[Rfam]
RNA sequence: GUUGACCUUACAGCAAAUCUAACAUUUCCUUACAUUCAAAGAAAACCUUUGUCAACUG
Numbered sequence: 001g002u003u004g005a006c007c008u009u010a011c012a013g014c015a016a017a018u019c020u021a022a023c024a025u026u027u028c029c030u031u032a033c034a035u036u037c038a039a040a041g042a043a044a045a046c047c048u049u050u051g052u053c054a055a056c057u058g
Stems, first nucleotide, its partner, number of pairs: 001056006

Record summary: Rfam assigns this 58-nucleotide sequence from Dictyostelium discoideum to the family "Class I RNA from Dictyostelium". The family's RNA type in Rfam is non-coding RNA gene. The sequence is in the family's curated seed alignment. The family's consensus secondary structure is taken from published work. The literature on the family includes a 2004 paper in Nucleic Acids Res by Aspegren et al., "Novel non-coding RNAs in Dictyostelium discoideum and their expression during development". Rfam describes the family as follows. Dictyostelium Class I RNA was first reported for Aspegren et al. 2004 in Dictyostelium discoideum. Sucgang et al. 2011 identify putative homologs of Class I RNA in D. discoideum and D. purpureum. Avesson et al. 2011 report that Class I RNA present a down regulation during the development of social amoeba Dictyostelium discoideum, they also found that deletion of one of the Class I RNAs, DdR-21, results in aberrant development.